The family of this 89-nucleotide RNA from Canis lupus is "mir-8799 microRNA precursor family". The base pairs follow the family's consensus structure, which was predicted with RNAalifold.
[Rfam]
RNA sequence: GGGGGGAGGCCGGAUCCUGGGCUGUGUCCCGGCGCCCUGUGCUCCGGGACCUGCGCUGGUGGAUUCGCGCUCCUGCCCUGCAGCCCUUC
Numbered sequence: 001g002g003g004g005g006g007a008g009g010c011c012g013g014a015u016c017c018u019g020g021g022c023u024g025u026g027u028c029c030c031g032g033c034g035c036c037c038u039g040u041g042c043u044c045c046g047g048g049a050c051c052u053g054c055g056c057u058g059g060u061g062g063a064u065u066c067g068c069g070c071u072c073c074u075g076c077c078c079u080g081c082a083g084c085c086c087u088u089c
Stems, first nucleotide, its partner, number of pairs: 001089006009081002012077002017075001019073003023069004027063003030058006039051001041050001043048001
It scores 78 bits against the family's covariance model.